[Rfam]
RNA sequence: AACAGGCUAUAUGACUGACGGAAGUGGGUUGACCACAGGGAGUAUAGCCGUAGAAAUGCCGACCGUCUGGGCGCACCUA
Numbered sequence: 001a002a003c004a005g006g007c008u009a010u011a012u013g014a015c016u017g018a019c020g021g022a023a024g025u026g027g028g029u030u031g032a033c034c035a036c037a038g039g040g041a042g043u044a045u046a047g048c049c050g051u052a053g054a055a056a057u058g059c060c061g062a063c064c065g066u067c068u069g070g071g072c073g074c075a076c077c078u079a
Stems, first nucleotide, its partner, number of pairs: 005049008015039002017067005024036004057073004

The record is a 79-nucleotide RNA from Pseudoflavonifractor sp. An176, which matches "ZMP/ZTP riboswitch aptamer (pfl RNA motif)" in Rfam. The source organism's lineage runs through Bacteria, Clostridia, Eubacteriales, Oscillospiraceae and Pseudoflavonifractor. A reference for the family is Jones and Ferre-D'Amare (2015), "Recognition of the bacterial alarmone ZMP through long-distance association of two RNA subdomains", Nat Struct Mol Biol. The match comes from Rfam's covariance-model search (58 bits).